[Rfam]
RNA sequence: GUGAGGCGCACCUAGGGUUCCGCCGCGGCGCGACGCCGCGGGACUGGUCCGAGAGGUGACGGCGGAUCGCACAGAUCCGUUCCACGGCGGGACAAAAGCCCGGGAGGC
Numbered sequence: 001g002u003g004a005g006g007c008g009c010a011c012c013u014a015g016g017g018u019u020c021c022g023c024c025g026c027g028g029c030g031c032g033a034c035g036c037c038g039c040g041g042g043a044c045u046g047g048u049c050c051g052a053g054a055g056g057u058g059a060c061g062g063c064g065g066a067u068c069g070c071a072c073a074g075a076u077c078c079g080u081u082c083c084a085c086g087g088c089g090g091g092a093c094a095a096a097a098g099c100c101c102g103g104g105a106g107g108c
Stems, first nucleotide, its partner, number of pairs: 009058004015050002020047002022044001023041006061081008083103001085106001089101003
Rfam assigns this 108-nucleotide RNA sequence from Kutzneria sp. 744 to the family "Guanidine-I riboswitch aptamer".
A reference for the family is Reiss et al. (2017), "Structural Basis for Ligand Binding to the Guanidine-I Riboswitch", Structure.
The base pairs follow the family's consensus structure.
It scores 81 bits against the family's covariance model.